[Rfam]
RNA sequence: AACAUGCUUCCUUAGAUCCACCUUUGUGGAUGGGUCUUGGACUGAGUUCUACCUGUAAACUUCUUGUUUCUUGUGGUUCCAGUCCAAGAAACGUCCAGCAACUUUGUUGGUUGUAUAGUCGAAGGUGCUUGAGUCAUUGGCAUGUGAGACUAAUAUACCUGCAUGCUAGUCUUCAGGUUCUGAUGGAAGUGACAUGCGUGAUGCUGUCAUGUGUUACUGUCAGGACUCGACUGGUGUGCGGACACG
Numbered sequence: 001a002a003c004a005u006g007c008u009u010c011c012u013u014a015g016a017u018c019c020a021c022c023u024u025u026g027u028g029g030a031u032g033g034g035u036c037u038u039g040g041a042c043u044g045a046g047u048u049c050u051a052c053c054u055g056u057a058a059a060c061u062u063c064u065u066g067u068u069u070c071u072u073g074u075g076g077u078u079c080c081a082g083u084c085c086a087a088g089a090a091a092c093g094u095c096c097a098g099c100a101a102c103u104u105u106g107u108u109g110g111u112u113g114u115a116u117a118g119u120c121g122a123a124g125g126u127g128c129u130u131g132a133g134u135c136a137u138u139g140g141c142a143u144g145u146g147a148g149a150c151u152a153a154u155a156u157a158c159c160u161g162c163a164u165g166c167u168a169g170u171c172u173u174c175a176g177g178u179u180c181u182g183a184u185g186g187a188a189g190u191g192a193c194a195u196g197c198g199u200g201a202u203g204c205u206g207u208c209a210u211g212u213g214u215u216a217c218u219g220u221c222a223g224g225a226c227u228c229g230a231c232u233g234g235u236g237u238g239c240g241g242a243c244a245c246g
Base pairs, nucleotide, nucleotide: 002145003144004143005142006141007140008139011133012132013131014130015129019127020126021125022124023123024122025121026120027097028096029095030094031093032092035089036088037087038086041083042082043081044080046079049076050075051074052073055070057069058068059067060066098114099113100112101111102110103109159241160240161239162238163237166234168232169231170230171229179224180223181222182221183220184219185218186217190216191215192214194212196207197206198205
Notes: Small nucleolar RNA SNORA53: a 246-nucleotide sequence. Rfam's curators write: The snoRNA ACA53 belongs to the H/ACA family of pseudouridylation guide snoRNAs. The family has 28 seed sequences and 1,090 matches in Rfam 15.1. The family's consensus secondary structure was predicted with RNAalifold. By type it is an H/ACA-box small nucleolar RNA. Gene Ontology terms of the family: RNA processing and nucleolus.